About this RNA:
This 427-nucleotide sequence from Paenalicyclobacillus macrosporangiidus belongs to the Rfam family "Bacterial RNase P class A". The match comes from Rfam's covariance-model search (299 bits). A reference for the family is Frank and Pace (1998), "Ribonuclease P: unity and diversity in a tRNA processing ribozyme", Annu Rev Biochem. Lineage of the source: Bacteria > Bacillota > Caryophanales > Alicyclobacillaceae > Paenalicyclobacillus. Rfam classes the family as a ribozyme.
RNA sequence: GGAGUAAGCCGGACAACCGCUGGUGCAGUGCCGAAAGGCCGCACGAGAGGAAAGUCCGAGCUCCACAGGGCAGGGUGCCGGAUAACGUCCGGCGGGAGCAAUCCUAGGGAAAGUGCCACAGAAAUGCAGACCGCCGAUGGAGGCUUCGGCCUCACAGGCAAGGGUGCAACGGUGCGGUAAGAGCGCACCAGCAACCUGGAGACAGGUUGGCUAGGUAAACCCCACCCGGAGCAAGACCGGAUAGGAGCGCACAUGUGGUGGCCCGCCACGCGCUCGGGUAGGUCGCUCGAGCCGGCUGGCAACAGUCGGCCUAGAUAGAUGGUUGUCACUCCGUUCGUGCGAGGCAUCCGCUGCCAACCCGCAUGGCCGGUAUGAUGCCGCCUGCAGCACGGGAGUACAGAACUCGGCUUACAGGCUUGCUUCCCGG
Number, nucleotide and partner (000 for none) at each position: 001g423002g422003a421004g420005u419006a418007a417008g416009c415010c414011g412012g327013a326014c325015a324016a323017c322018c321019g000020c047021u046022g000023g044024u043025g042026c041027a000028g039029u000030g000031c000032c000033g000034a000035a000036a000037g000038g000039c028040c000041g026042c025043a024044c023045g000046a021047g020048a000049g000050g000051a000052a410053a409054g408055u000056c407057c406058g405059a404060g403061c231062u230063c229064c228065a000066c000067a000068g264069g263070g262071c261072a000073g227074g226075g225076u224077g223078c092079c091080g090081g089082a088083u000084a000085a000086c000087g000088u082089c081090c080091g079092g078093c107094g105095g104096g103097a102098g000099c000100a000101a000102u097103c096104c095105u094106a000107g093108g222109g221110a000111a000112a000113g220114u219115g216116c215117c214118a000119c000120a000121g000122a000123a000124a000125u000126g000127c000128a000129g000130a000131c163132c162133g159134c158135c157136g000137a000138u000139g000140g153141a152142g151143g150144c149145u000146u000147c000148g000149g144150c143151c142152u141153c140154a000155c000156a000157g135158g134159c133160a000161a000162g132163g131164g000165u000166g000167c000168a000169a000170c000171g189172g188173u187174g186175c185176g184177g000178u000179a000180a000181g000182a000183g000184c176185g175186c174187a173188c172189c171190a000191g211192c209193a208194a207195c206196c205197u204198g203199g000200a000201g000202a000203c198204a197205g196206g195207u194208u193209g192210g000211c191212u000213a000214g117215g116216u115217a000218a000219a114220c113221c109222c108223c077224a076225c075226c074227c073228g064229g063230a062231g061232c000233a000234a000235g284236a283237c282238c281239g000240g000241a000242u000243a000244g000245g275246a274247g273248c272249g271250c270251a000252c000253a000254u000255g269256u268257g267258g266259u265260g000261g071262c070263c069264c068265g259266c258267c257268a256269c255270g250271c249272g248273c247274u246275c245276g000277g000278g000279u000280a000281g238282g237283u236284c235285g000286c000287u000288c000289g000290a000291g310292c309293c308294g307295g306296c305297u304298g303299g000300c000301a000302a000303c298304a297305g296306u295307c294308g293309g292310c291311c000312u000313a000314g000315a000316u000317a000318g000319a000320u000321g018322g017323u016324u015325g014326u013327c012328a000329c000330u000331c000332c000333g000334u000335u000336c000337g000338u000339g000340c000341g000342a000343g000344g000345c000346a000347u000348c000349c000350g000351c000352u000353g000354c000355c000356a000357a000358c000359c000360c000361g000362c000363a000364u000365g000366g000367c000368c000369g000370g000371u000372a000373u000374g000375a000376u000377g000378c000379c000380g000381c000382c000383u000384g000385c000386a000387g000388c000389a000390c000391g000392g000393g000394a000395g000396u000397a000398c000399a000400g000401a000402a000403c060404u059405c058406g057407g056408c054409u053410u052411a000412c011413a000414g010415g009416c008417u007418u006419g005420c004421u003422u002423c001424c000425c000426g000427g000